[Rfam]
RNA sequence: UAUGCUGAUUUAGCCACAGUGGCAUUUAUAUAUACAUUUUUGGUGUCAUCUGCUAGAAAUCAGCUAAAACAAUUUCAUAAUUUUAGGAACCAUUAAAAAAAAUUGCUAAUUUUUUUAUUGGGCCAUAUUUAUGAAUACAACA
Dot-bracket structure: ...((((((((.....(((.((((...................))))..)))....)))))))).........(((((.......((..(....(.((((((((...)))))))))...)..))......))))).......

A member of the RNA family "small nucleolar RNA snoR27" from Plasmodium yoelii, 142 nucleotides long. On this family, see Chakrabarti et al., RNA 2007: "Structural RNAs of known and unknown function identified in malaria parasites by comparative genomics and RNA analysis". Pairs were carried over by alignment from the consensus structure, which was predicted with RNAalifold. NCBI's taxonomy places the organism under Eukaryota, Alveolata, Apicomplexa, Aconoidasida, Plasmodium yoelii. Gene Ontology terms of the family: RNA processing and nucleolus.